[Rfam]
RNA sequence: GCAGACGGCACUUAUUCUUGUAGUAGGCAGGCGCAUCGCAACAUGAGGGCAUAACCCUCGUGCGAAUUGCGGUGCGCCGAACACAGGUCCCUCAGGGGGCCUUUUUUAUUAUCCAAA
Numbered sequence: 001g002c003a004g005a006c007g008g009c010a011c012u013u014a015u016u017c018u019u020g021u022a023g024u025a026g027g028c029a030g031g032c033g034c035a036u037c038g039c040a041a042c043a044u045g046a047g048g049g050c051a052u053a054a055c056c057c058u059c060g061u062g063c064g065a066a067u068u069g070c071g072g073u074g075c076g077c078c079g080a081a082c083a084c085a086g087g088u089c090c091c092u093c094a095g096g097g098g099g100c101c102u103u104u105u106u107u108a109u110u111a112u113c114c115a116a117a
Base pairs, nucleotide, nucleotide: 006023026113027112029110030078031077032076033075034074035073036072037071038070039069044060045059046058047057048056049055062067083103085102086101087100088099089098090097091096